[Rfam]
RNA sequence: CAAUGAAGAAAGCAUGAUAAUGUGCACAUAAAUUGAAUUGGGCCUGUAGACCUGUCCUCUCUAAUGCCAUUUGAUUUUGAUUUGAGGGCAUGAUUCCACAUCAAAACA
Numbered sequence: 001c002a003a004u005g006a007a008g009a010a011a012g013c014a015u016g017a018u019a020a021u022g023u024g025c026a027c028a029u030a031a032a033u034u035g036a037a038u039u040g041g042g043c044c045u046g047u048a049g050a051c052c053u054g055u056c057c058u059c060u061c062u063a064a065u066g067c068c069a070u071u072u073g074a075u076u077u078u079g080a081u082u083u084g085a086g087g088g089c090a091u092g093a094u095u096c097c098a099c100a101u102c103a104a105a106a107c108a
Stems, first nucleotide, its partner, number of pairs: 012025004040091001042089003050081001052079001054075003
RNA: Small nucleolar RNA snoR100